[Rfam]
RNA sequence: CUCUUUGCCCCGUAUGGCUUUUUAUUCCUAUCUGAGAAUUGCUCAGGACUCAUAUAGGGAUGGAAGCCAUGCAGGGCUGGGG
Numbered sequence: 001c002u003c004u005u006u007g008c009c010c011c012g013u014a015u016g017g018c019u020u021u022u023u024a025u026u027c028c029u030a031u032c033u034g035a036g037a038a039u040u041g042c043u044c045a046g047g048a049c050u051c052a053u054a055u056a057g058g059g060a061u062g063g064a065a066g067c068c069a070u071g072c073a074g075g076g077c078u079g080g081g082g
Stems, first nucleotide, its partner, number of pairs: 002082004007077004012072010024061008033052003
This 82-nucleotide RNA from Danio rerio belongs to the Rfam family "mir-135 microRNA precursor family".
The organism belongs to Danio, within Eukaryota.
A reference for the family is Lagos-Quintana et al. (2002), "Identification of tissue-specific microRNAs from mouse", Curr Biol.